Small nucleolar RNA Z39: a 64-nucleotide RNA from Platysternon megacephalum. Rfam 15.1 lists 935 matches to the family in 520 species. The base pairs follow the family's consensus structure, which was predicted with PFOLD. For this family Rfam cites "The high diversity of snoRNAs in plants: identification and comparative study of 120 snoRNA genes from Oryza sativa" (Chen et al., Nucleic Acids Res, 2003). The match comes from Rfam's covariance-model search (67 bits). The source organism's lineage runs through Eukaryota, Chordata, Dipnotetrapodomorpha, Testudinoidea and Platysternon.
RNA sequence: GUACAAAUGAUGUGAAUACAACAGUAUGAGAAAAUCAAUGAUACUGUAAACGCUUUCUGAUGUA
Numbered sequence: 001g002u003a004c005a006a007a008u009g010a011u012g013u014g015a016a017u018a019c020a021a022c023a024g025u026a027u028g029a030g031a032a033a034a035u036c037a038a039u040g041a042u043a044c045u046g047u048a049a050a051c052g053c054u055u056u057c058u059g060a061u062g063u064a
Base pairs, nucleotide, nucleotide: 002064003063004062005061012056015054017052022046023045024044025043026042027041